[Rfam]
RNA sequence: AAGCCAUUAAGAAACCUUUGAAUCAAGUAACGUAAAUGAUUCAAAGGUUUCUCAA
Numbered sequence: 001a002a003g004c005c006a007u008u009a010a011g012a013a014a015c016c017u018u019u020g021a022a023u024c025a026a027g028u029a030a031c032g033u034a035a036a037u038g039a040u041u042c043a044a045a046g047g048u049u050u051c052u053c054a055a
Stems, first nucleotide, its partner, number of pairs: 007055002010052016